[Rfam]
RNA sequence: UCCGACGAGCUGAACGCUUUCGAAGGAAAGCUUGACCAGCUAAUCUUCUGCAACGCCAUUACGAGGACUGCCCUUAGAGGCUCAUGGCGAUAGGUCACCCCGCCGGUCGGUCAGCUGCUUUUGCCGAA
Numbered sequence: 001u002c003c004g005a006c007g008a009g010c011u012g013a014a015c016g017c018u019u020u021c022g023a024a025g026g027a028a029a030g031c032u033u034g035a036c037c038a039g040c041u042a043a044u045c046u047u048c049u050g051c052a053a054c055g056c057c058a059u060u061a062c063g064a065g066g067a068c069u070g071c072c073c074u075u076a077g078a079g080g081c082u083c084a085u086g087g088c089g090a091u092a093g094g095u096c097a098c099c100c101c102g103c104c105g106g107u108c109g110g111u112c113a114g115c116u117g118c119u120u121u122u123g124c125c126g127a128a
Base pairs, nucleotide, nucleotide: 001128003126004125006123007122008121009120016031017030018029019028020027021026034112035111036110037109039107040106042069044067045066046065047064048063055088056087057086058085059084093101094100

A member of the RNA family "Staphylococcus-1 RNA", 128 nucleotides long. The family's RNA type in Rfam is small RNA.